Shown here is a 45-nucleotide RNA from Antarcticibacterium flavum, a member of the family "Acido-Lenti-1 RNA". The family's consensus secondary structure is taken from published work. Rfam classes the family as a small RNA.
[Rfam]
RNA sequence: CGAGGGGCUGCACCCCUCGCUGAUGUAUGACGCCCUUUCAGGGCU
Numbered sequence: 001c002g003a004g005g006g007g008c009u010g011c012a013c014c015c016c017u018c019g020c021u022g023a024u025g026u027a028u029g030a031c032g033c034c035c036u037u038u039c040a041g042g043g044c045u
Base pairs, nucleotide, nucleotide: 001019002018003017004016005015006014007013032044033043034042035041036040